[Rfam]
RNA sequence: GGAACAAUAACGCCUUCUUGAUAGAACAAGAAGGGGGUUAUUGCGCCUUUUA
Numbered sequence: 001g002g003a004a005c006a007a008u009a010a011c012g013c014c015u016u017c018u019u020g021a022u023a024g025a026a027c028a029a030g031a032a033g034g035g036g037g038u039u040a041u042u043g044c045g046c047c048u049u050u051u052a
Base pairs, nucleotide, nucleotide: 001047002046005043006042007041008040009039010038011037015033016031017030018029019028020027
RNA: Plastid-psbA-3 3UTR RNA